[Rfam]
RNA sequence: CUUGGUGGUUAAGAGGCUUCAAUGCCUAGUGAGAGUUGAGCUUUGCGACACUGUCAAAUUGCGGGGACUACCUUAGAGCCUUUCGCUACCGCCUCUAUGCUGAAAAGUGUAGUUUGGGCACCAAGGGUAAUGACCUUGGGUAUGGUAAUAACGCGAAGGGAUUGGUUAAUCCGCAGCCAAGUCCUAACGGCUUGCUAGUUGGACAACUAGUUACUAGUUGCGCAACUAGUUAGCUCAUGGAUGCAGUUCACAGACUAGAUGGCAGUGGGUCUUUCUUGUUUGAAAGGCUUAAGAUAUAGUCGGUCCUAUUGCGAAAGCAAUCU
Numbered sequence: 001c002u003u004g005g006u007g008g009u010u011a012a013g014a015g016g017c018u019u020c021a022a023u024g025c026c027u028a029g030u031g032a033g034a035g036u037u038g039a040g041c042u043u044u045g046c047g048a049c050a051c052u053g054u055c056a057a058a059u060u061g062c063g064g065g066g067a068c069u070a071c072c073u074u075a076g077a078g079c080c081u082u083u084c085g086c087u088a089c090c091g092c093c094u095c096u097a098u099g100c101u102g103a104a105a106a107g108u109g110u111a112g113u114u115u116g117g118g119c120a121c122c123a124a125g126g127g128u129a130a131u132g133a134c135c136u137u138g139g140g141u142a143u144g145g146u147a148a149u150a151a152c153g154c155g156a157a158g159g160g161a162u163u164g165g166u167u168a169a170u171c172c173g174c175a176g177c178c179a180a181g182u183c184c185u186a187a188c189g190g191c192u193u194g195c196u197a198g199u200u201g202g203a204c205a206a207c208u209a210g211u212u213a214c215u216a217g218u219u220g221c222g223c224a225a226c227u228a229g230u231u232a233g234c235u236c237a238u239g240g241a242u243g244c245a246g247u248u249c250a251c252a253g254a255c256u257a258g259a260u261g262g263c264a265g266u267g268g269g270u271c272u273u274u275c276u277u278g279u280u281u282g283a284a285a286g287g288c289u290u291a292a293g294a295u296a297u298a299g300u301c302g303g304u305c306c307u308a309u310u311g312c313g314a315a316a317g318c319a320a321u322c323u
Stems, first nucleotide, its partner, number of pairs: 005025003009021001011019003049267005055261002060175006070166003176247002181242004189235004251302001253301005269288007308321005
RNA: Group I catalytic intron